[Rfam]
A member of the RNA family "MIR2275 microRNA precursor family" from Citrus unshiu, 91 nucleotides long.
The base pairs follow the family's consensus structure, which was predicted with RNAalifold.
Its family is annotated with miRNA-mediated post-transcriptional gene silencing and RISC complex in the Gene Ontology.
RNA sequence: AAGUUGUAUGUAAGAAUUAGAGGCGGCUAAACAAGUUAGUAGAAUGAAAUUACAUUCUGUUUAGUUUCCUCUAAUAUCUUAUCUCCAACUU
Number, nucleotide and partner (000 for none) at each position: 001a000002a000003g000004u088005u087006g086007u000008a084009u000010g000011u081012a080013a079014g078015a000016a075017u074018u073019a072020g071021a070022g000023g068024c000025g066026g065027c064028u063029a062030a061031a000032c059033a058034a000035g000036u000037u000038a000039g000040u000041a000042g000043a000044a000045u000046g000047a000048a000049a000050u000051u000052a000053c000054a000055u000056u000057c000058u033059g032060u000061u030062u029063a028064g027065u026066u025067u000068c023069c000070u021071c020072u019073a018074a017075u016076a000077u000078c014079u013080u012081a011082u000083c000084u008085c000086c006087a005088a004089c000090u000091u000